This 86-nucleotide RNA sequence from Eurystomus gularis belongs to the Rfam family "Small nucleolar RNA SNORD103/SNORD85". Taxonomically the source falls in Eurystomus (Eukaryota, Metazoa, Chordata, Sauria). The family has 41 seed sequences and 1,349 matches in Rfam 15.1. For this family Rfam cites "Identification of 13 novel human modification guide RNAs" (Vitali et al., Nucleic Acids Res, 2003). By type it is a C/D-box small nucleolar RNA.
[Rfam]
RNA sequence: GCUGGCGAUGACGACACACUUGCCCUCACUGAGAAGCACGUUCUCUGACGAGAGCAGCUCUCUGCGCUCACUGGAACCGAGCCAGA
Numbered sequence: 001g002c003u004g005g006c007g008a009u010g011a012c013g014a015c016a017c018a019c020u021u022g023c024c025c026u027c028a029c030u031g032a033g034a035a036g037c038a039c040g041u042u043c044u045c046u047g048a049c050g051a052g053a054g055c056a057g058c059u060c061u062c063u064g065c066g067c068u069c070a071c072u073g074g075a076a077c078c079g080a081g082c083c084a085g086a
Base pairs, nucleotide, nucleotide: 002085003084004083005082006081